[Rfam]
Nucleotides: 105
Stems, first nucleotide, its partner, number of pairs: 019090007029049007058081001060077005
Number, partner (000 for none) and nucleotide at each position: 001000u002000u003000g004000a005000g006000a007000a008000a009000u010000c011000a012000u013000u014000g015000c016000a017000c018000c019090a020089c021088u022087c023086g024085u025084a026000u027000a028000a029049a030048u031047u032046u033045g034044a035043u036000g037000a038000u039000a040000u041000g042000g043035a044034u045033c046032a047031a048030a049029u050000g051000u052000u053000u054000c055000u056000a057000c058081c059000a060077a061076a062075c063074u064073a065000c066000c067000u068000u069000a070000a071000a072000a073064u074063a075062g076061u077060u078000a079000c080000a081058g082000g083000c084025u085024a086023c087022g088021a089020g090019u091000u092000c093000u094000u095000u096000a097000u098000u099000c100000u101000u102000a103000a104000g105000g
The family of this 105-nucleotide RNA from Dethiosulfatibacter aminovorans is "Purine riboswitch aptamer". Lineage of the source: Bacteria > Bacillati > Tissierellia > Dethiosulfatibacter > Dethiosulfatibacter aminovorans. Pairs were carried over by alignment from the consensus structure, which is taken from published work. Riboswitches are metabolite binding domains within certain messenger RNAs that serve as precision sensors for their corresponding targets.